Small nucleolar RNA Z103: a 99-nucleotide RNA from Hordeum vulgare. It is annotated as a C/D-box small nucleolar RNA. Its family is annotated with nucleolus and RNA processing in the Gene Ontology.
[Rfam]
RNA sequence: AUGGAUGUGAGGACUCUUUCCCCAAAUUAUUGACUGUGAUUAUACUGUGCGCAACUGUAAUCCUUCAUUGGAGGAUUCCAAGCCAGAAGUCUGAUCCGU
Numbered sequence: 001a002u003g004g005a006u007g008u009g010a011g012g013a014c015u016c017u018u019u020c021c022c023c024a025a026a027u028u029a030u031u032g033a034c035u036g037u038g039a040u041u042a043u044a045c046u047g048u049g050c051g052c053a054a055c056u057g058u059a060a061u062c063c064u065u066c067a068u069u070g071g072a073g074g075a076u077u078c079c080a081a082g083c084c085a086g087a088a089g090u091c092u093g094a095u096c097c098g099u
Stems, first nucleotide, its partner, number of pairs: 001099005